[Rfam]
RNA sequence: GUUGCUUCUUAGAAUCUUAAUAGUUGAACUCUCUUAAAUUUUGAAAUAGAGAAGUUCAUGUAUUUGGAAGCAUAAAUCAAAUUGUGAUCCAGUAUUAAACAGCAUGAUGCACUUUUCCGUUGCACCAUUGUUACCUGUCUUCUGGUACAUUU
Numbered sequence: 001g002u003u004g005c006u007u008c009u010u011a012g013a014a015u016c017u018u019a020a021u022a023g024u025u026g027a028a029c030u031c032u033c034u035u036a037a038a039u040u041u042u043g044a045a046a047u048a049g050a051g052a053a054g055u056u057c058a059u060g061u062a063u064u065u066g067g068a069a070g071c072a073u074a075a076a077u078c079a080a081a082u083u084g085u086g087a088u089c090c091a092g093u094a095u096u097a098a099a100c101a102g103c104a105u106g107a108u109g110c111a112c113u114u115u116u117c118c119g120u121u122g123c124a125c126c127a128u129u130g131u132u133a134c135c136u137g138u139c140u141u142c143u144g145g146u147a148c149a150u151u152u
Stems, first nucleotide, its partner, number of pairs: 003072006025058005030052005089145004094140001101132003105127002108124002
Overview: A member of the RNA family "small nucleolar RNA snoR137" from Papaver somniferum, 152 nucleotides long. Rfam classes the family as an H/ACA-box small nucleolar RNA. Its family is annotated with RNA processing and nucleolus in the Gene Ontology. It scores 76 bits against the family's covariance model. Rfam 15.1 lists 808 matches to the family in 221 species. NCBI's taxonomy places the organism under Eukaryota, Embryophyta, Euphyllophyta, Mesangiospermae, Papaver.